[Rfam]
RNA sequence: AACGUAUUGAAAGGAGGUGAUCCAGUGUCUCAUUGUCAUAAUCCGCAGGUGCUGGGCACCUCGGCUGAGAACGUCGCCUUCAGGGGGCGUUCUAGCUGAGGGUUUUGCCCCCGCUUUGCGGAUGGCAAUGGAAGGGCUGCCCGGGCGGGCGGCCCU
Numbered sequence: 001a002a003c004g005u006a007u008u009g010a011a012a013g014g015a016g017g018u019g020a021u022c023c024a025g026u027g028u029c030u031c032a033u034u035g036u037c038a039u040a041a042u043c044c045g046c047a048g049g050u051g052c053u054g055g056g057c058a059c060c061u062c063g064g065c066u067g068a069g070a071a072c073g074u075c076g077c078c079u080u081c082a083g084g085g086g087g088c089g090u091u092c093u094a095g096c097u098g099a100g101g102g103u104u105u106u107g108c109c110c111c112c113g114c115u116u117u118g119c120g121g122a123u124g125g126c127a128a129u130g131g132a133a134g135g136g137c138u139g140c141c142c143g144g145g146c147g148g149g150c151g152g153c154c155c156u
Base pairs, nucleotide, nucleotide: 016023017022031130032129033128034127035126036125037124044064047061048060049059050058051057075102077101078100079099111121112120113119114118133156134155135154136153137152138151139150140149141148142147
Shown here is a 156-nucleotide RNA sequence from Hartmannibacter diazotrophicus, a member of the family "caulobacter sRNA CC2171". A search with the family's covariance model found it, with a score of 84 bits. Pairs were carried over by alignment from the consensus structure, which was predicted with RNAalifold.